[Rfam]
RNA: lysM-TM7 RNA
RNA sequence: CCCUACCUUUAAAUGUCGUACGGACGCCGAAAAAGCUCACUAAUAUUAGUAAUUACUAUCGGUCGACACGCGCGUUCCUGUCUCGGUAACGAGAGAAAGACAGAGUGAGGUAGCUCAGGGUUUGGCAACAAGCUCUAAGGAG
Number, nucleotide and partner (000 for none) at each position: 001c000002c000003c113004u112005a111006c110007c109008u108009u107010u000011a000012a000013a000014u102015g101016u100017c099018g000019u000020a000021c000022g077023g076024a075025c074026g073027c072028c000029g000030a000031a000032a000033a000034a000035g000036c000037u000038c000039a000040c000041u000042a000043a000044u000045a000046u000047u000048a000049g000050u000051a000052a000053u000054u000055a000056c000057u000058a000059u000060c000061g000062g000063u000064c000065g000066a000067c000068a000069c000070g000071c000072g027073c026074g025075u024076u023077c022078c000079u000080g000081u094082c093083u092084c091085g000086g000087u000088a000089a000090c000091g084092a083093g082094a081095g000096a000097a000098a000099g017100a016101c015102a014103g000104a000105g000106u000107g009108a008109g007110g006111u005112a004113g003114c000115u000116c000117a136118g135119g134120g133121u132122u131123u130124g129125g000126c000127a000128a000129c124130a123131a122132g121133c120134u119135c118136u117137a000138a000139g000140g000141a000142g000